The record is a 94-nucleotide RNA from Drosophila busckii, which matches "mir-958 microRNA precursor family" in Rfam. Pairs were carried over by alignment from the consensus structure, which was predicted with RNAalifold. NCBI's taxonomy places the organism under Eukaryota, Bilateria, Pterygota, Aparaglossata, Dorsilopha.
[Rfam]
RNA sequence: CGGUGUAGUUUGGCAAGUAGAAUAGCAGGCUUAUCACAUGUAACACUCGACUCUGUGUGAGAUUCUUCUAUUCUACUUUCGAUACGAGACACCA
Dot-bracket structure: .(((((....(((.(((((((((((.(((....(((((.................)))))....))))))))))))))))).......))))).
Numbered sequence: 001c002g003g004u005g006u007a008g009u010u011u012g013g014c015a016a017g018u019a020g021a022a023u024a025g026c027a028g029g030c031u032u033a034u035c036a037c038a039u040g041u042a043a044c045a046c047u048c049g050a051c052u053c054u055g056u057g058u059g060a061g062a063u064u065c066u067u068c069u070a071u072u073c074u075a076c077u078u079u080c081g082a083u084a085c086g087a088g089a090c091a092c093c094a
Stems, first nucleotide, its partner, number of pairs: 002093005011081003015078011027067003034060005